[Rfam]
RNA sequence: CUUUUUUGUAUGCAAGUGUGUUCCUCUAUUUGAUGCUAAAGGUCGAUGCUCUAGUUGAAACACUUCACUAGUGUCGUUGUUACCUUUGGUAGUAUUCUUACCUUUAGCGUCAAGAGACGAACACACUUUCCCACCGACAAGAC
Numbered sequence: 001c002u003u004u005u006u007u008g009u010a011u012g013c014a015a016g017u018g019u020g021u022u023c024c025u026c027u028a029u030u031u032g033a034u035g036c037u038a039a040a041g042g043u044c045g046a047u048g049c050u051c052u053a054g055u056u057g058a059a060a061c062a063c064u065u066c067a068c069u070a071g072u073g074u075c076g077u078u079g080u081u082a083c084c085u086u087u088g089g090u091a092g093u094a095u096u097c098u099u100a101c102c103u104u105u106a107g108c109g110u111c112a113a114g115a116g117a118c119g120a121a122c123a124c125a126c127u128u129u130c131c132c133a134c135c136g137a138c139a140a141g142a143c
Base pairs, nucleotide, nucleotide: 001141002140003139005137007136008135012130014128015127016126017125018124019123020122021121022120023119025117026116027115029114030113031112032111033110034109035108036107037106038105039104040103041102042101043100045096046095047094048093049092052089054087057083059081060080061079062078063076066073067072
RNA: MIR6234 microRNA precursor family
Organism: Miscanthus lutarioriparius